[Rfam]
RNA: FMN riboswitch aptamer (RFN element)
RNA sequence: GGUCGUCUUCACGGGCAGGGUGUAAUUCCCGACCGGUGGUUAAAGUCCACGAACUAGUUAUCCUAUGGUGACUAGCCGAUUUGGUGAAAUUCCAAUACCGACAGUUAGAGUCUGGAGUAAAGAAGAUAGGG
Number, nucleotide and partner (000 for none) at each position: 001g000002g000003u129004c000005g127006u126007c125008u124009u123010c122011a000012c000013g000014g000015g000016c000017a000018g030019g029020g028021u000022g000023u000024a000025a000026u000027u000028c020029c019030c018031g000032a111033c110034c100035g099036g050037u049038g048039g047040u000041u000042a000043a000044a000045g098046u097047c039048c038049a037050c036051g000052a000053a000054c075055u074056a000057g000058u000059u000060a000061u000062c000063c000064u000065a000066u000067g000068g000069u000070g000071a000072c000073u000074a055075g054076c000077c000078g000079a000080u000081u095082u094083g093084g092085u000086g000087a000088a000089a000090u000091u000092c084093c083094a082095a081096u000097a046098c045099c035100g034101a000102c114103a113104g112105u000106u000107a000108g000109a000110g033111u032112c104113u103114g102115g000116a000117g000118u000119a000120a000121a000122g010123a009124a008125g007126a006127u005128a000129g003130g000131g000